[Rfam]
RNA sequence: CACACGUAGGGUUUGGGAUUUUCCGGGAGAAAUCCGGAAGGUUCCGCCGGUGGCGUUCUUCAAGAGAAGACGCUGUUUGCCCUGCGGAGGUUAACCGGAAAAGGAGAAAAAGG
Numbered sequence: 001c002a003c004a005c006g007u008a009g010g011g012u013u014u015g016g017g018a019u020u021u022u023c024c025g026g027g028a029g030a031a032a033u034c035c036g037g038a039a040g041g042u043u044c045c046g047c048c049g050g051u052g053g054c055g056u057u058c059u060u061c062a063a064g065a066g067a068a069g070a071c072g073c074u075g076u077u078u079g080c081c082c083u084g085c086g087g088a089g090g091u092u093a094a095c096c097g098g099a100a101a102a103g104g105a106g107a108a109a110a111a112g113g
Base pairs, nucleotide, nucleotide: 001089003087005086006085007084008083009082010081011080015045016044023036026034052074053073054072055071056070057069
About this RNA
This 113-nucleotide sequence from Rhizobium sp. Root1212 belongs to the Rfam family "rpsB sRNA". The family's consensus secondary structure is taken from published work. The match comes from Rfam's covariance-model search (46 bits). On this family, see Meyer et al., BMC Genomics 2009: "Identification of candidate structured RNAs in the marine organism 'Candidatus Pelagibacter ubique'". It is annotated as a small RNA.